[Rfam]
RNA sequence: CUUUAACUUUAAUGUGGAAGUGCUUUCUGUGAUUCUAAAAUAUAGUAAGUGCUUCCAUGUUUUAGUGUAAG
Numbered sequence: 001c002u003u004u005a006a007c008u009u010u011a012a013u014g015u016g017g018a019a020g021u022g023c024u025u026u027c028u029g030u031g032a033u034u035c036u037a038a039a040a041u042a043u044a045g046u047a048a049g050u051g052c053u054u055c056c057a058u059g060u061u062u063u064a065g066u067g068u069a070a071g
Stems, first nucleotide, its partner, number of pairs: 001071003006066003011061015027045002
Source information: mir-302 microRNA precursor family: a 71-nucleotide sequence from Erinaceus europaeus. Taxonomically the source falls in Erinaceus (Eukaryota, Deuterostomia, Teleostomi, Mammalia). The literature on the family includes a 2006 paper in Nucleic Acids Res by Mineno et al., "The expression profile of microRNAs in mouse embryos". Gene Ontology terms of the family: RISC complex and miRNA-mediated post-transcriptional gene silencing. Its Rfam clan is "mir-290 clan". A search with the family's covariance model found it, with a score of 69 bits.